RNA sequence: UCGUUCUCAACGGGGUGCCGGUUAACUGGCUGAGAGAGACCCGUCGAACCUGAUCCGGCUCGUACCGGCGUCGGGAUUUGAGAUGCUCCGCCCU
Numbered sequence: 001u002c003g004u005u006c007u008c009a010a011c012g013g014g015g016u017g018c019c020g021g022u023u024a025a026c027u028g029g030c031u032g033a034g035a036g037a038g039a040c041c042c043g044u045c046g047a048a049c050c051u052g053a054u055c056c057g058g059c060u061c062g063u064a065c066c067g068g069c070g071u072c073g074g075g076a077u078u079u080g081a082g083a084u085g086c087u088c089c090g091c092c093c094u
Stems, first nucleotide, its partner, number of pairs: 006082005011043004016037001017030005049074002052071001055068004